[Rfam]
RNA: mir-395 microRNA precursor family
Organism: Citrus sinensis
RNA sequence: GUUUCCCCUAGAGUUCCCCUGAACACUUCAUUGGGGACUCCUUUUAACCCUACUGAAGUGUUUGGGGGAACUCCUGGAGUCAU
Number, nucleotide and partner (000 for none) at each position: 001g000002u000003u000004u000005c079006c000007c077008c076009u000010a000011g073012a072013g071014u070015u069016c068017c067018c066019c065020u064021g000022a063023a062024c060025a059026c058027u057028u056029c055030a054031u000032u052033g051034g050035g049036g000037a000038c000039u000040c000041c000042u000043u000044u000045u000046a000047a000048c000049c035050c034051u033052a032053c000054u030055g029056a028057a027058g026059u025060g024061u000062u023063u022064g020065g019066g018067g017068g016069a015070a014071c013072u012073c011074c000075u000076g008077g007078a000079g005080u000081c000082a000083u000